Rfam assigns this 102-nucleotide RNA from Niallia endozanthoxylica to the family "Purine riboswitch aptamer". From the family's description: Riboswitches are metabolite binding domains within certain messenger RNAs that serve as precision sensors for their corresponding targets. Pairs were carried over by alignment from the consensus structure, which is taken from published work. A reference for the family is Reining et al. (2013), "Three-state mechanism couples ligand and temperature sensing in riboswitches", Nature. Rfam 15.1 lists 4,097 matches to the family in 1,411 species.
RNA sequence: GUAUAAAUGAAUACUGGUUCUCGUAUAAUCCUGGGAAUAUGGCCCAAAAGUUUCUACCAAGCUACCUUAAAUAGCCUGACUACGAGGUUGUGUACAUAAAUA
Numbered sequence: 001g002u003a004u005a006a007a008u009g010a011a012u013a014c015u016g017g018u019u020c021u022c023g024u025a026u027a028a029u030c031c032u033g034g035g036a037a038u039a040u041g042g043c044c045c046a047a048a049a050g051u052u053u054c055u056a057c058c059a060a061g062c063u064a065c066c067u068u069a070a071a072u073a074g075c076c077u078g079a080c081u082a083c084g085a086g087g088u089u090g091u092g093u094a095c096a097u098a099a100a101u102a
Base pairs, nucleotide, nucleotide: 019087020086021085022084023083024082025081029049032046033045034044035043058078059077061075062074063073064072